[Rfam]
RNA: Small nucleolar RNA SNORD23
Organism: Chinchilla lanigera
RNA sequence: UGCCCAGUGAUGACUCCAUCCUUGCUCCCCGUGCCCCCAGGGGCUGUGGGCGACACCUUGGUGCCCUGGGCUGGCCUGGUGAGGCCUUGCCUGGGGCUGAGGGCA
Numbered sequence: 001u002g003c004c005c006a007g008u009g010a011u012g013a014c015u016c017c018a019u020c021c022u023u024g025c026u027c028c029c030c031g032u033g034c035c036c037c038c039a040g041g042g043g044c045u046g047u048g049g050g051c052g053a054c055a056c057c058u059u060g061g062u063g064c065c066c067u068g069g070g071c072u073g074g075c076c077u078g079g080u081g082a083g084g085c086c087u088u089g090c091c092u093g094g095g096g097c098u099g100a101g102g103g104c105a
Base pairs, nucleotide, nucleotide: 001105002104003103004102005101